[Rfam]
RNA sequence: CCUGUGGAGUGCUACAUCAAACCGUAGUAGCGAGUAAGAGGUGAGGCGGGGCACGAAGAAGCAGGAA
Numbered sequence: 001c002c003u004g005u006g007g008a009g010u011g012c013u014a015c016a017u018c019a020a021a022c023c024g025u026a027g028u029a030g031c032g033a034g035u036a037a038g039a040g041g042u043g044a045g046g047c048g049g050g051g052c053a054c055g056a057a058g059a060a061g062c063a064g065g066a067a
Base pairs, nucleotide, nucleotide: 001065002064003063004062005061009054010053011052012051013050022049023048024047030042031041

A member of the RNA family "RAGATH-18 RNA" from Paenactinomyces guangxiensis, 67 nucleotides long. Taxonomically the source falls in Paenactinomyces (Bacteria, Bacillota, Caryophanales, Thermoactinomycetaceae). The family's consensus secondary structure is taken from published work.